This 353-nucleotide RNA from Bartonella quintana belongs to the Rfam family "Alphaproteobacteria transfer-messenger RNA". Taxonomically the source falls in Bartonella quintana (Bacteria, Pseudomonadati, Hyphomicrobiales, Bartonella). Rfam's curators write: Bacterial tmRNA, also known as 10Sa RNA or SsrA, is named for its dual tRNA and mRNA-like properties. Its role is to liberate the mRNA from a stalled ribosome. To accomplish this part of the tmRNA is used as a reading frame that ends in a translation stop signal. Pairs were carried over by alignment from the consensus structure, which is taken from published work. The family's RNA type in Rfam is non-coding RNA gene.
RNA sequence: CCCCUUUUCCAAAGACUGUUCUUCAUCUAUAUUUAGAGAGCUGGCUUACCAGCUAUGGUAAUAAAUGGACAAUGAAAUAAACUCAUUGGACCCGGGGGCGGUACCCGGCGCCUCCACCAAAAUAUAACAAAAAUUAUAUUUUGGUGGGGGCGAAAUAGGAUCGACAAGGGUGUAAAGAUUGCUCUUUUACUCGGCAUAGUACCACCGUCAUCGGACUAAAUGAGUAGUUGCAAAUGACAACUAUGCGGAAGCACGUCUCGCUGCUUAAUGUAGUGUGAAUGUUUCAAACUAAGCCUUAAAUCGUCGCAGAUUUAAGCGGGGUUCGAAGGCACCUGGCAACAGAAGCCUUCACU
Numbered sequence: 001c002c003c004c005u006u007u008u009c010c011a012a013a014g015a016c017u018g019u020u021c022u023u024c025a026u027c028u029a030u031a032u033u034u035a036g037a038g039a040g041c042u043g044g045c046u047u048a049c050c051a052g053c054u055a056u057g058g059u060a061a062u063a064a065a066u067g068g069a070c071a072a073u074g075a076a077a078u079a080a081a082c083u084c085a086u087u088g089g090a091c092c093c094g095g096g097g098g099c100g101g102u103a104c105c106c107g108g109c110g111c112c113u114c115c116a117c118c119a120a121a122a123u124a125u126a127a128c129a130a131a132a133a134u135u136a137u138a139u140u141u142u143g144g145u146g147g148g149g150g151c152g153a154a155a156u157a158g159g160a161u162c163g164a165c166a167a168g169g170g171u172g173u174a175a176a177g178a179u180u181g182c183u184c185u186u187u188u189a190c191u192c193g194g195c196a197u198a199g200u201a202c203c204a205c206c207g208u209c210a211u212c213g214g215a216c217u218a219a220a221u222g223a224g225u226a227g228u229u230g231c232a233a234a235u236g237a238c239a240a241c242u243a244u245g246c247g248g249a250a251g252c253a254c255g256u257c258u259c260g261c262u263g264c265u266u267a268a269u270g271u272a273g274u275g276u277g278a279a280u281g282u283u284u285c286a287a288a289c290u291a292a293g294c295c296u297u298a299a300a301u302c303g304u305c306g307c308a309g310a311u312u313u314a315a316g317c318g319g320g321g322u323u324c325g326a327a328g329g330c331a332c333c334u335g336g337c338a339a340c341a342g343a344a345g346c347c348u349u350c351a352c353u
Stems, first nucleotide, its partner, number of pairs: 040053005057191005067185003070181004082170003086167003092108005109152007192207003197218003202214002319334004325350006